tRNA: an 83-nucleotide sequence from Silanimonas sp. Rfam classes the family as a transfer RNA. A search with the family's covariance model found it, with a score of 54 bits.
RNA sequence: GGAGGAAUACCCAAGCGGCCAACGGGGGCAGACUGUAAAUCUGCUGGCUCACGCCUUCGGUGGUUCGAAUCCACCUUCCUCCA
Number, nucleotide and partner (000 for none) at each position: 001g082002g081003a080004g079005g078006a077007a076008u000009a000010c026011c025012c024013a000014a000015g000016c000017g000018g000019c000020c000021a000022a000023c000024g012025g011026g010027g000028g044029c043030a042031g041032a040033c000034u000035g000036u000037a000038a000039a000040u032041c031042u030043g029044c028045u000046g000047g000048c000049u000050c000051a000052c000053g000054c000055c000056u000057u000058c000059g075060g074061u073062g072063g071064u000065u000066c000067g000068a000069a000070u000071c063072c062073a061074c060075c059076u007077u006078c005079c004080u003081c002082c001083a000